Rfam assigns this 167-nucleotide sequence from Agarivorans albus to the family "Manganese Mn2+ riboswitch aptamer (yybP-ykoY)". Taxonomically the source falls in Agarivorans albus (Bacteria, Pseudomonadati, Gammaproteobacteria, Alteromonadaceae). Its family is annotated with manganese ion binding in the Gene Ontology. The match comes from Rfam's covariance-model search (61 bits).
RNA sequence: UUGGGGAGUAGCUGCCCAUAUCAAUAAGGUAUGGGGCAUUUAUCAACAUACUUAGUGCUCAUCACUAUGGUAAAUGCAGCCUUUAUUGGCCUAGCAAGACCAAAUGCACAUUAACGCCAUAAAGAGGUGAGCUGCGUUGUGUGCAUUGGUUUAUUCGCUCGCCUCAU
Numbered sequence: 001u002u003g004g005g006g007a008g009u010a011g012c013u014g015c016c017c018a019u020a021u022c023a024a025u026a027a028g029g030u031a032u033g034g035g036g037c038a039u040u041u042a043u044c045a046a047c048a049u050a051c052u053u054a055g056u057g058c059u060c061a062u063c064a065c066u067a068u069g070g071u072a073a074a075u076g077c078a079g080c081c082u083u084u085a086u087u088g089g090c091c092u093a094g095c096a097a098g099a100c101c102a103a104a105u106g107c108a109c110a111u112u113a114a115c116g117c118c119a120u121a122a123a124g125a126g127g128u129g130a131g132c133u134g135c136g137u138u139g140u141g142u143g144c145a146u147u148g149g150u151u152u153a154u155u156c157g158c159u160c161g162c163c164u165c166a167u
Stems, first nucleotide, its partner, number of pairs: 016034003036077010053067005